The record is a 101-nucleotide sequence from Mammaliicoccus stepanovicii, which matches "RNA Staph. aureus E (RoxS)" in Rfam. Taxonomically the source falls in Mammaliicoccus (Bacteria, Bacillati, Bacilli, Staphylococcaceae). On this family, see Durand et al., PLoS Genet 2015: "A nitric oxide regulated small RNA controls expression of genes involved in redox homeostasis in Bacillus subtilis". About the family: It was shown to be regulated by the presence of nitric oxide (NO). In Bacillus subtilis it controls expression of genes with functions related to oxidative stress and oxidation-reduction reactions and it was renamed RoxS (for related to oxidative stress).

[Rfam]
RNA sequence: AUGAAAUUAAUCACAUAACAAACAUACCCCUUUGUUUGAAGUGAAAAAUUUCUCCCAUCCCCUUUGUUUAAAACACCGUGUAAUCAGACACGGUGUUUUUU
Numbered sequence: 001a002u003g004a005a006a007u008u009a010a011u012c013a014c015a016u017a018a019c020a021a022a023c024a025u026a027c028c029c030c031u032u033u034g035u036u037u038g039a040a041g042u043g044a045a046a047a048a049u050u051u052c053u054c055c056c057a058u059c060c061c062c063u064u065u066g067u068u069u070a071a072a073a074c075a076c077c078g079u080g081u082a083a084u085c086a087g088a089c090a091c092g093g094u095g096u097u098u099u100u101u
Stems, first nucleotide, its partner, number of pairs: 003052006011044004019038006071098011